[Rfam]
RNA: msiK RNA
RNA sequence: GGUGCCCCUUCUUUCCGACGGAUCGUCCGGCACGUACCUGCCGGGGAAGAGAGCGCCCC
Numbered sequence: 001g002g003u004g005c006c007c008c009u010u011c012u013u014u015c016c017g018a019c020g021g022a023u024c025g026u027c028c029g030g031c032a033c034g035u036a037c038c039u040g041c042c043g044g045g046g047a048a049g050a051g052a053g054c055g056c057c058c059c
Stems, first nucleotide, its partner, number of pairs: 009051007027044006